[Rfam]
RNA sequence: UCCAGAAGCCGGUAAGCCACUGACUAACGCACAUUGUGUCUCUUUGCGUUCCCACUGUGCGUGUGACAGCGGCUAACCAGCCUCUCGGGCAGCGCUCC
Numbered sequence: 001u002c003c004a005g006a007a008g009c010c011g012g013u014a015a016g017c018c019a020c021u022g023a024c025u026a027a028c029g030c031a032c033a034u035u036g037u038g039u040c041u042c043u044u045u046g047c048g049u050u051c052c053c054a055c056u057g058u059g060c061g062u063g064u065g066a067c068a069g070c071g072g073c074u075a076a077c078c079a080g081c082c083u084c085u086c087g088g089g090c091a092g093c094g095c096u097c098c
Base pairs, nucleotide, nucleotide: 005084006083008081009080011078012077015074016073017072018071020069021068022067024065025063026062028061029060030059031058032057033056035054036053
The record is a 98-nucleotide sequence from Erpetoichthys calabaricus, which matches "mir-210 microRNA precursor family" in Rfam. The base pairs follow the family's consensus structure, which was predicted with WAR. NCBI's taxonomy places the organism under Eukaryota, Craniata, Actinopterygii, Polypteridae, Erpetoichthys. It scores 70 bits against the family's covariance model. Its family is annotated with miRNA-mediated post-transcriptional gene silencing and RISC complex in the Gene Ontology. The family has 26 seed sequences and 790 matches in Rfam 15.1.